Shown here is a 76-nucleotide sequence from Sphingobium wenxiniae, a member of the family "Makes More Granules Regulator RNA (mmgR)".
RNA sequence: AGAAAAGGCCUUUCAGGCAUCCUCUCCUAUAAACUUUCAGGGCUGGCCUUCGGGCUGGCCCUUUUUUUGUUUUGGU
Numbered sequence: 001a002g003a004a005a006a007g008g009c010c011u012u013u014c015a016g017g018c019a020u021c022c023u024c025u026c027c028u029a030u031a032a033a034c035u036u037u038c039a040g041g042g043c044u045g046g047c048c049u050u051c052g053g054g055c056u057g058g059c060c061c062u063u064u065u066u067u068u069g070u071u072u073u074g075g076u
Base pairs, nucleotide, nucleotide: 008018009017010016011015040061041060042059043058044057045056046055047054048053
The literature on the family includes a 2005 paper in Genome Biol by Corbino et al., "Evidence for a second class of S-adenosylmethionine riboswitches and other regulatory RNA motifs in alpha-proteobacteria". The pairing is the family consensus, mapped onto this sequence. The match comes from Rfam's covariance-model search (48 bits).